[Rfam]
RNA sequence: AACUGAAGGUGAUCGAGCCUACUAUGUAGGUUAGGAAAGUCCAUGCUAGCACAUACUGAGAUGUAUGUAGUGUUUGUGCCUAAGGAAAAAAUAACUUAGGGUAUCAGAAAUGAUAACGGCAUUUAAUGAUCUAAGGGAAACUAUGAUCUAGAAUGUAACGUGCCACAGAAACGAGUUAGUUAGAAAUAACUAAAUGAAACGCGGUAAACCCCUCAAGCUAGAAACCCAAAUUUGGUAGGGGCGUAUAAAGACAACUAAAUGAAGUUAGUCUUAAUGCUACUUAUGUAGAGAUAAAUGGUCACACUCAAAGAUUUGAGAACAGAACAUGGCUUAUGCA
Numbered sequence: 001a002a003c004u005g006a007a008g009g010u011g012a013u014c015g016a017g018c019c020u021a022c023u024a025u026g027u028a029g030g031u032u033a034g035g036a037a038a039g040u041c042c043a044u045g046c047u048a049g050c051a052c053a054u055a056c057u058g059a060g061a062u063g064u065a066u067g068u069a070g071u072g073u074u075u076g077u078g079c080c081u082a083a084g085g086a087a088a089a090a091a092u093a094a095c096u097u098a099g100g101g102u103a104u105c106a107g108a109a110a111u112g113a114u115a116a117c118g119g120c121a122u123u124u125a126a127u128g129a130u131c132u133a134a135g136g137g138a139a140a141c142u143a144u145g146a147u148c149u150a151g152a153a154u155g156u157a158a159c160g161u162g163c164c165a166c167a168g169a170a171a172c173g174a175g176u177u178a179g180u181u182a183g184a185a186a187u188a189a190c191u192a193a194a195u196g197a198a199a200c201g202c203g204g205u206a207a208a209c210c211c212c213u214c215a216a217g218c219u220a221g222a223a224a225c226c227c228a229a230a231u232u233u234g235g236u237a238g239g240g241g242c243g244u245a246u247a248a249a250g251a252c253a254a255c256u257a258a259a260u261g262a263a264g265u266u267a268g269u270c271u272u273a274a275u276g277c278u279a280c281u282u283a284u285g286u287a288g289a290g291a292u293a294a295a296u297g298g299u300c301a302c303a304c305u306c307a308a309a310g311a312u313u314u315g316a317g318a319a320c321a322g323a324a325c326a327u328g329g330c331u332u333a334u335g336c337a
Base pairs, nucleotide, nucleotide: 004337005336007334009302010301011300012299013298014297016032017031018030019029020028021027037332038331039330041329042328043327044326045325046221047220048219049218050217051068052067053066054065055064056063074216075215076214078212079100080099081098082097083096084095101117102115103114104113105112106111118211119210121154122153123152124151128148129147130146131145135142136141160209161208162205163204164203176193177192178191179190180189181188182187225240226239227238244276245275246274248272249271250270277288278287279286280285304317305316306315307314308313
Dot-bracket structure: ...((.(.((((((.((((((.....))))))....[[[.[[[[[(((((((((((......)))))).....(((.(((((((..........))))))((((((....))))).)((.((((...((((...((....))..))))..)))).....(((((...........(((((((....))))))).........)))..))))).))))))))...(((..........)))...(((.(((...................))).)))((((....))))........)))))).(((((....))))).......]]]]]]]].).))